[Rfam]
Rfam assigns this 228-nucleotide RNA from Paenibacillus albiflavus to the family "T-box leader". It is annotated as a cis-regulatory leader. The organism belongs to Paenibacillus, within Bacteria. For this family Rfam cites "Interaction between the acceptor end of tRNA and the T box stimulates antitermination in the Bacillus subtilis tyrS gene: a new role for the discriminator base" (Grundy et al., J Bacteriol, 1994).

RNA sequence: GUUAAAGCGUUGAUGGAGAGAUACGUUAGUGUAACAUUCAGAGAGUCGGUGGUUGGUGUGAAUCGACAGUGAAGCUAAUGCACAGCACUCCAGAGUAUUGUUUUGAACGUCAAUCUGACUAGUAGAGGCAAACGGUAGGAAUCCGUUAUCGUUCCCAUGAGGCUGCAGAUAAACAUUUAUUUGCAGUGAAGUAGGGUGGCACCACGAUGAGAAGCUUUCGUCCCUUUU
Numbered sequence: 001g002u003u004a005a006a007g008c009g010u011u012g013a014u015g016g017a018g019a020g021a022u023a024c025g026u027u028a029g030u031g032u033a034a035c036a037u038u039c040a041g042a043g044a045g046u047c048g049g050u051g052g053u054u055g056g057u058g059u060g061a062a063u064c065g066a067c068a069g070u071g072a073a074g075c076u077a078a079u080g081c082a083c084a085g086c087a088c089u090c091c092a093g094a095g096u097a098u099u100g101u102u103u104u105g106a107a108c109g110u111c112a113a114u115c116u117g118a119c120u121a122g123u124a125g126a127g128g129c130a131a132a133c134g135g136u137a138g139g140a141a142u143c144c145g146u147u148a149u150c151g152u153u154c155c156c157a158u159g160a161g162g163c164u165g166c167a168g169a170u171a172a173a174c175a176u177u178u179a180u181u182u183g184c185a186g187u188g189a190a191g192u193a194g195g196g197u198g199g200c201a202c203c204a205c206g207a208u209g210a211g212a213a214g215c216u217u218u219c220g221u222c223c224c225u226u227u228u
Stems, first nucleotide, its partner, number of pairs: 007096002015091004024080006034070002045067006098131007133145003162187010193225004204221004